[Rfam]
RNA sequence: UUGGACUGAGAUACUCAGAAAUAUUGAAUUUAUUUCUGUUACUUGAUGUCCAAAGAAUAAAAAAGCUCUCUGAUGACUGCAUUACUCUGAGUUAUGAAUGCGGACAGAUACGGAGCUAACAUAU
Dot-bracket structure: .(((((.........(((...((.......))...))).........)))))...........((((((.......(((..((.............))..)))........)))))).......
A member of the RNA family "Small Cajal body specific RNA 8" from Hyalella azteca, 124 nucleotides long. The literature on the family includes a 2002 paper in EMBO J by Darzacq et al., "Cajal body-specific small nuclear RNAs: a novel class of 2'-O-methylation and pseudouridylation guide RNAs". It is annotated as a small Cajal body RNA. scaRNAs are a specific class of small nuclear RNAs which localise to the Cajal bodies and guide the modification of RNA polymerase II transcribed spliceosomal RNAs U1, U2, U4, U5 and U12. U92 belong to the H/ACA box class of guide RNAs as it has the predicted hairpin-hinge-hairpin-tail structure, conserved H/ACA-box motifs and is found associated with GAR1. Pairs were carried over by alignment from the consensus structure, which is taken from published work.